[Rfam]
RNA sequence: CCCUGACAACCAAAGAAUGGUUGACAUUUGCCAAGACAGGAGAAUGACAUG
Dot-bracket structure: .((((.(((((.......))))).............))))...........
Numbered sequence: 001c002c003c004u005g006a007c008a009a010c011c012a013a014a015g016a017a018u019g020g021u022u023g024a025c026a027u028u029u030g031c032c033a034a035g036a037c038a039g040g041a042g043a044a045u046g047a048c049a050u051g
Stems, first nucleotide, its partner, number of pairs: 002040004007023005
This 51-nucleotide RNA belongs to the Rfam family "Mu-gpT-DE RNA". Rfam classes the family as a small RNA. The family's consensus secondary structure is taken from published work.